RNA sequence: AGGAAAGGCGUUCUUGAGUGCAGCGUUGAUGAACCUGCCGGCCGGCUAACCUGAAAGUCUGAAACUGGCUCAAAGGUUCACCAGCACUGCACCCAAUAACGCCUUUG
Numbered sequence: 001a002g003g004a005a006a007g008g009c010g011u012u013c014u015u016g017a018g019u020g021c022a023g024c025g026u027u028g029a030u031g032a033a034c035c036u037g038c039c040g041g042c043c044g045g046c047u048a049a050c051c052u053g054a055a056a057g058u059c060u061g062a063a064a065c066u067g068g069c070u071c072a073a074a075g076g077u078u079c080a081c082c083a084g085c086a087c088u089g090c091a092c093c094c095a096a097u098a099a100c101g102c103c104u105u106u107g
Base pairs, nucleotide, nucleotide: 006104007103008102009101010100011099014096015095016094018092019091020090021089022088023087025085026084027083028082030080031079032078

A member of the RNA family "MIR397 microRNA precursor family" from Oryza meyeriana, 107 nucleotides long. The literature on the family includes a 2009 paper in BMC Genomics by Mica et al., "High throughput approaches reveal splicing of primary microRNA transcripts and tissue specific expression of mature microRNAs in Vitis vinifera". NCBI's taxonomy places the organism under Eukaryota, commelinids, Oryzeae, Oryza, Oryza meyeriana. Pairs were carried over by alignment from the consensus structure, which was predicted with WAR.